[Rfam]
RNA sequence: GCAUGUUACUACUGUAAGUCGCUCUGGAUAAGAGCGUCUGCUAAAUGACUUAAA
Numbered sequence: 001g002c003a004u005g006u007u008a009c010u011a012c013u014g015u016a017a018g019u020c021g022c023u024c025u026g027g028a029u030a031a032g033a034g035c036g037u038c039u040g041c042u043a044a045a046u047g048a049c050u051u052a053a054a
Base pairs, nucleotide, nucleotide: 013043014041015040016039020036021035022034023033024032025031
Shown here is a 54-nucleotide sequence from Salmo salar, a member of the family "UnaL2 LINE 3' element". It scores 67 bits against the family's covariance model. Rfam links the family to the GO term transposition, RNA-mediated. The family's consensus secondary structure is taken from published work. Taxonomically the source falls in Salmo (Eukaryota, Vertebrata, Gnathostomata, Euteleosteomorpha). The family's RNA type in Rfam is cis-regulatory element.